A member of the RNA family "mir-484 microRNA precursor family" from Orycteropus afer, 67 nucleotides long.

RNA sequence: UCGUCAGGCUCAGUCCCCUCCCGAUAAACCCUCAAAUGGGGACAUUCCUGGGGGUCGACACUGGCCU
Numbered sequence: 001u002c003g004u005c006a007g008g009c010u011c012a013g014u015c016c017c018c019u020c021c022c023g024a025u026a027a028a029c030c031c032u033c034a035a036a037u038g039g040g041g042a043c044a045u046u047c048c049u050g051g052g053g054g055u056c057g058a059c060a061c062u063g064g065c066c067u
Base pairs, nucleotide, nucleotide: 003065004064005063007061010058011057013056015054016053017052018051019050023047024046026045030041031040032039033038

Annotation:
Its family is annotated with miRNA-mediated post-transcriptional gene silencing and RISC complex in the Gene Ontology. The base pairs follow the family's consensus structure, which was predicted with RNAalifold.